[Rfam]
RNA sequence: GCCGGAGUGGCGGAAUCGGCAGACGCACAGGACUUAAAAUCCUGCGGUAGGUGACUAUCGUACCAGUUCAAGUCUGGUCUUCGGCA
Numbered sequence: 001g002c003c004g005g006a007g008u009g010g011c012g013g014a015a016u017c018g019g020c021a022g023a024c025g026c027a028c029a030g031g032a033c034u035u036a037a038a039a040u041c042c043u044g045c046g047g048u049a050g051g052u053g054a055c056u057a058u059c060g061u062a063c064c065a066g067u068u069c070a071a072g073u074c075u076g077g078u079c080u081u082c083g084g085c086a
Stems, first nucleotide, its partner, number of pairs: 001085007010026003028044005062078005
RNA: tRNA